Background: This 162-nucleotide RNA sequence from Nicotiana sylvestris belongs to the Rfam family "MIR168 microRNA precursor family". The base pairs follow the family's consensus structure, which was predicted with WAR. A search with the family's covariance model found it, with a score of 93 bits. Its family is annotated with RISC complex and miRNA-mediated post-transcriptional gene silencing in the Gene Ontology.

RNA sequence: AUCGCGGCGGUCUCUCAUUCGCUUGGUGCAGGUCGGGACCUGCCUCGCCGGCGACAAUGACGUCAGCUGACGGUGACGGUGGCGUAUCGAUAGAUAUACAUGUUGUUUAUGACGAAAUUUUGGUCCCGCCUUGCAUCAACUGAAUCGGAGACUGCGGUGAAU
Numbered sequence: 001a002u003c004g005c006g007g008c009g010g011u012c013u014c015u016c017a018u019u020c021g022c023u024u025g026g027u028g029c030a031g032g033u034c035g036g037g038a039c040c041u042g043c044c045u046c047g048c049c050g051g052c053g054a055c056a057a058u059g060a061c062g063u064c065a066g067c068u069g070a071c072g073g074u075g076a077c078g079g080u081g082g083c084g085u086a087u088c089g090a091u092a093g094a095u096a097u098a099c100a101u102g103u104u105g106u107u108u109a110u111g112a113c114g115a116a117a118u119u120u121u122g123g124u125c126c127c128g129c130c131u132u133g134c135a136u137c138a139a140c141u142g143a144a145u146c147g148g149a150g151a152c153u154g155c156g157g158u159g160a161a162u
Base pairs, nucleotide, nucleotide: 013149014148017145018144019143020142023139024138025137026136027135028134029133030132031131032130034128035127036126037125038124040122